[Rfam]
RNA sequence: UGGUAGAUAUACCCUGGUAACUUGGCUUCCCUAGUUAGCUAUCAAGCACUAGGGUUUUUUCUU
Numbered sequence: 001u002g003g004u005a006g007a008u009a010u011a012c013c014c015u016g017g018u019a020a021c022u023u024g025g026c027u028u029c030c031c032u033a034g035u036u037a038g039c040u041a042u043c044a045a046g047c048a049c050u051a052g053g054g055u056u057u058u059u060u061c062u063u
Stems, first nucleotide, its partner, number of pairs: 002013003029054007

The family of this 63-nucleotide RNA from Fischerella thermalis is "Nitrogen stress-induced RNA 1". The organism belongs to Fischerella thermalis, within Bacteria. The literature on the family includes a 2010 paper in J Mol Biol by Ionescu et al., "Heterocyst-specific transcription of NsiR1, a non-coding RNA encoded in a tandem array of direct repeats in cyanobacteria". Rfam 15.1 lists 962 matches to the family in 163 species. It scores 42 bits against the family's covariance model.